[Rfam]
RNA: Actinobacteria sRNA Ms_AS-8
Organism: Mycobacterium intermedium
RNA sequence: CUUGAUCGAAUACCUGAUUCCGUGAUGAUCAUCCUCGGGAAGGUGCGCCCACUUUCACGCCACCUCAUCAAGGCU
Dot-bracket structure: ..((((((.(........).).....))))).......(((((((....)))))))...................